RNA sequence: GGUUUAAUUACCCAAGUUUGAGGUAAUUGAAUGUUUCGGCCCUGAUAAAAAUUCCAUUGUCAGUGGUUCUGAAAAAAAAUUUUGGAACGCUUCGCUCUAGCGAAGCAAC
Numbered sequence: 001g002g003u004u005u006a007a008u009u010a011c012c013c014a015a016g017u018u019u020g021a022g023g024u025a026a027u028u029g030a031a032u033g034u035u036u037c038g039g040c041c042c043u044g045a046u047a048a049a050a051a052u053u054c055c056a057u058u059g060u061c062a063g064u065g066g067u068u069c070u071g072a073a074a075a076a077a078a079a080u081u082u083u084g085g086a087a088c089g090c091u092u093c094g095c096u097c098u099a100g101c102g103a104a105g106c107a108a109c
Stems, first nucleotide, its partner, number of pairs: 003031010034074004039067003089106007

Overview
The family of this 109-nucleotide RNA from Hylia prasina is "SL1 RNA". For this family Rfam cites "Trans-spliced leader RNA, 5S-rRNA genes and novel variant orphan spliced-leader of the lymphatic filarial nematode Wuchereria bancrofti, and a sensitive polymerase chain reaction based detection assay" (Dassanayake et al., Gene, 2001). By type it is a non-coding RNA gene. Taxonomically the source falls in Hylia (Eukaryota, Sauria, Neoaves, Passeriformes). Rfam links the family to the GO term mRNA trans splicing, via spliceosome. This family represents the SL1 RNA. SL1 is commonly located in the spacer region between 5S-rRNA genes where it is involved in trans-splicing. Trans-splicing is a form of RNA processing. Its Rfam clan is "SL clan".